[Rfam]
RNA: mir-142 microRNA precursor family
Organism: Chelonoidis abingdonii
RNA sequence: GACAGGACUCCUCCAUAAAGUAGAAAGCAUCAAACGCCGUCCUGUGUAGUGUUUCCUACUUUAUGGAUGAGUGUGCUGU
Numbered sequence: 001g002a003c004a005g006g007a008c009u010c011c012u013c014c015a016u017a018a019a020g021u022a023g024a025a026a027g028c029a030u031c032a033a034a035c036g037c038c039g040u041c042c043u044g045u046g047u048a049g050u051g052u053u054u055c056c057u058a059c060u061u062u063a064u065g066g067a068u069g070a071g072u073g074u075g076c077u078g079u
Stems, first nucleotide, its partner, number of pairs: 014065010026053005